[Rfam]
RNA: mraW RNA
Organism: Streptomyces sp. ISL-98
RNA sequence: CGGCGUACGUACGGCCCGGCCUCCUCCCGCUCGCCGGUCGGCCGACGCCACUUCCCCGGCGCCGGUAGGCCGCUUCCCCUUGUGAGCGGAGGGGGACCAGGCCGUACGUACGAAUGACC
Number, nucleotide and partner (000 for none) at each position: 001c000002g000003g000004c000005g000006u000007a000008c000009g000010u106011a105012c104013g103014g102015c101016c100017c000018g098019g097020c000021c095022u094023c093024c092025u091026c000027c089028c088029g087030c086031u085032c084033g083034c082035c072036g071037g070038u069039c068040g000041g066042c065043c064044g063045a000046c061047g060048c059049c000050a000051c000052u000053u000054c000055c000056c000057c000058g000059g048060c047061g046062c000063c044064g043065g042066u041067a000068g039069g038070c037071c036072g035073c000074u000075u000076c000077c000078c000079c000080u000081u000082g034083u033084g032085a031086g030087c029088g028089g027090a000091g025092g024093g023094g022095g021096a000097c019098c018099a000100g016101g015102c014103c013104g012105u011106a010107c000108g000109u000110a000111c000112g000113a000114a000115u000116g000117a000118c000119c000